Clostridiales-1 RNA: a 152-nucleotide sequence from Clostridiales bacterium CHKCI001. Lineage of the source: Bacteria > Bacillati > Bacillota > Clostridia > Eubacteriales. It is annotated as a small RNA. It scores 88 bits against the family's covariance model.
[Rfam]
RNA sequence: UAAAACAAGAGUCAAAAGGUAAUGCACUUCAUGCCAGCAUGAAAAAGCAUGAGUUUAGGACUCGCAAAAACAUUAAAAAUAAACCCAAUCGGGUGAUUUUGAAUGUUUUUAGGAUUUCGUGAGCACAAAGUGCAUAGAAAUCCAUAGUAUUA
Numbered sequence: 001u002a003a004a005a006c007a008a009g010a011g012u013c014a015a016a017a018g019g020u021a022a023u024g025c026a027c028u029u030c031a032u033g034c035c036a037g038c039a040u041g042a043a044a045a046a047g048c049a050u051g052a053g054u055u056u057a058g059g060a061c062u063c064g065c066a067a068a069a070a071c072a073u074u075a076a077a078a079a080u081a082a083a084c085c086c087a088a089u090c091g092g093g094u095g096a097u098u099u100u101g102a103a104u105g106u107u108u109u110u111a112g113g114a115u116u117u118c119g120u121g122a123g124c125a126c127a128a129a130g131u132g133c134a135u136a137g138a139a140a141u142c143c144a145u146a147g148u149a150u151u152a
Stems, first nucleotide, its partner, number of pairs: 001152003005148002010062004016056003020052001022050004028044001029042005066110008076100004083094004112143007123133004